[Rfam]
RNA sequence: UUUGCGUCGGCAAGUCCUACACGACCAGCUCCUGUUGAAUCCCCCAGGGUGGGAACACAGCAAGGGUAGACGGUUGUAGCGGUGCGAUGUAGGUAGCUUGCCAUUUU
Numbered sequence: 001u002u003u004g005c006g007u008c009g010g011c012a013a014g015u016c017c018u019a020c021a022c023g024a025c026c027a028g029c030u031c032c033u034g035u036u037g038a039a040u041c042c043c044c045c046a047g048g049g050u051g052g053g054a055a056c057a058c059a060g061c062a063a064g065g066g067u068a069g070a071c072g073g074u075u076g077u078a079g080c081g082g083u084g085c086g087a088u089g090u091a092g093g094u095a096g097c098u099u100g101c102c103a104u105u106u107u
Stems, first nucleotide, its partner, number of pairs: 009102007017092005022086002024083002
Dot-bracket structure: ........(((((((.(((((((((........................................................)).)).)))))...))))))).....